[Rfam]
RNA sequence: UCAGUUACAAUCAUGCACCUGGGGUACACAUACGAGUACGUUACGUUACUCAUUCCCUCAAGGAGGGAGUUUUUACCCCGGGAAGGUCUGAGAUAAGGCACAACUCUGUGUGAGAGUGUUCGUACUCCUCAGCAAGGAGCUUGUAUGACGAAAAGGCGAAAGGACCAGAAAAACUGCAUUGGAGUCGGUUCUCGCCGACUUCUUUGUAUUGAUAUCUUUCGUUGCCAGCUGUUUUAGUGCAAUGUGCAUGCUGUAACCUUGACUCUCUUCUGUCGAUUAAAUGAUGGUGAGCGGGGUCAUUUACAGAACUCAAUUCAGACUAAUCUGUCACUGA
Numbered sequence: 001u002c003a004g005u006u007a008c009a010a011u012c013a014u015g016c017a018c019c020u021g022g023g024g025u026a027c028a029c030a031u032a033c034g035a036g037u038a039c040g041u042u043a044c045g046u047u048a049c050u051c052a053u054u055c056c057c058u059c060a061a062g063g064a065g066g067g068a069g070u071u072u073u074u075a076c077c078c079c080g081g082g083a084a085g086g087u088c089u090g091a092g093a094u095a096a097g098g099c100a101c102a103a104c105u106c107u108g109u110g111u112g113a114g115a116g117u118g119u120u121c122g123u124a125c126u127c128c129u130c131a132g133c134a135a136g137g138a139g140c141u142u143g144u145a146u147g148a149c150g151a152a153a154a155g156g157c158g159a160a161a162g163g164a165c166c167a168g169a170a171a172a173a174c175u176g177c178a179u180u181g182g183a184g185u186c187g188g189u190u191c192u193c194g195c196c197g198a199c200u201u202c203u204u205u206g207u208a209u210u211g212a213u214a215u216c217u218u219u220c221g222u223u224g225c226c227a228g229c230u231g232u233u234u235u236a237g238u239g240c241a242a243u244g245u246g247c248a249u250g251c252u253g254u255a256a257c258c259u260u261g262a263c264u265c266u267c268u269u270c271u272g273u274c275g276a277u278u279a280a281a282u283g284a285u286g287g288u289g290a291g292c293g294g295g296g297u298c299a300u301u302u303a304c305a306g307a308a309c310u311c312a313a314u315u316c317a318g319a320c321u322a323a324u325c326u327g328u329c330a331c332u333g334a
Stems, first nucleotide, its partner, number of pairs: 001334004007328003012250007021079005034051005039045001088318005097226004125139005140155003144151001156222007176207003251306006

This 334-nucleotide sequence from Hermetia illucens belongs to the Rfam family "Nuclear RNase P". It scores 122 bits against the family's covariance model. Rfam links the family to the GO terms ribonuclease P complex, tRNA processing and ribonuclease P activity. The family's RNA type in Rfam is ribozyme. A reference for the family is Frank and Pace (1998), "Ribonuclease P: unity and diversity in a tRNA processing ribozyme", Annu Rev Biochem. The family's consensus secondary structure is taken from published work.